[Rfam]
Bacterial RNase P class A: a 394-nucleotide sequence from Roseovarius halotolerans. A search with the family's covariance model found it, with a score of 292 bits. The family's consensus secondary structure is taken from published work.

RNA sequence: GCGGAAGGCCGGAUGGCCGCGGGGGGUCUUGCCCCUCGAGGAAAGUCCGGACUCCACAAGGCAACGGUGCCGGGUAACGCCCGGCCGGGGCAACCCGAGGGAAAGCGCCACAGAGAACAGACCGCCGCGCUCGUCGCGGUAAGGGUGAAACGGUGGAGUAAGAGCCCACCGCGGGGCUGGCAACAGCCCCGGCAUGGCAAGCCCCACCGGGAGCAAUGCCGAAUAGGGAUCGCAUGCGGGGUCAGGUCGGGCAACCGAUACCGCCCGCAGGGACGCCUUGCCCCGGCGAUCCGGGUUGGCAGCUUGAGGUGCCGUGGUGACAUGGCACCCAGAGGAAUGGUCAUCCAAGGGGGAAACCCCUGGACAGAAUCCGGCUUACAGGCUUUCCGCGCCU
Numbered sequence: 001g002c003g004g005a006a007g008g009c010c011g012g013a014u015g016g017c018c019g020c021g022g023g024g025g026g027u028c029u030u031g032c033c034c035c036u037c038g039a040g041g042a043a044a045g046u047c048c049g050g051a052c053u054c055c056a057c058a059a060g061g062c063a064a065c066g067g068u069g070c071c072g073g074g075u076a077a078c079g080c081c082c083g084g085c086c087g088g089g090g091c092a093a094c095c096c097g098a099g100g101g102a103a104a105g106c107g108c109c110a111c112a113g114a115g116a117a118c119a120g121a122c123c124g125c126c127g128c129g130c131u132c133g134u135c136g137c138g139g140u141a142a143g144g145g146u147g148a149a150a151c152g153g154u155g156g157a158g159u160a161a162g163a164g165c166c167c168a169c170c171g172c173g174g175g176g177c178u179g180g181c182a183a184c185a186g187c188c189c190c191g192g193c194a195u196g197g198c199a200a201g202c203c204c205c206a207c208c209g210g211g212a213g214c215a216a217u218g219c220c221g222a223a224u225a226g227g228g229a230u231c232g233c234a235u236g237c238g239g240g241g242u243c244a245g246g247u248c249g250g251g252c253a254a255c256c257g258a259u260a261c262c263g264c265c266c267g268c269a270g271g272g273a274c275g276c277c278u279u280g281c282c283c284c285g286g287c288g289a290u291c292c293g294g295g296u297u298g299g300c301a302g303c304u305u306g307a308g309g310u311g312c313c314g315u316g317g318u319g320a321c322a323u324g325g326c327a328c329c330c331a332g333a334g335g336a337a338u339g340g341u342c343a344u345c346c347a348a349g350g351g352g353g354a355a356a357c358c359c360c361u362g363g364a365c366a367g368a369a370u371c372c373g374g375c376u377u378a379c380a381g382g383c384u385u386u387c388c389g390c391g392c393c394u
Base pairs, nucleotide, nucleotide: 001390002389003388004387005386006385007384008383009382010381011379012345013344014343015342016341017340018339020038021037022036023035024034025033026032027031043377044376045375047374048373049372050371051370052213053212054211055210060279061278065209066208067207068206069205070084071083072082073081074080085099086097087096088095089094100204101203105202106201107198108197109196122144123143124140125139126138127137128136129135152170153169154168155167156166171193172191173190174189175188176187177186178185179184217301218300219299220298227292228291229290230289231288232287270284271283272282274280309328310327311326312325313324314323315322316321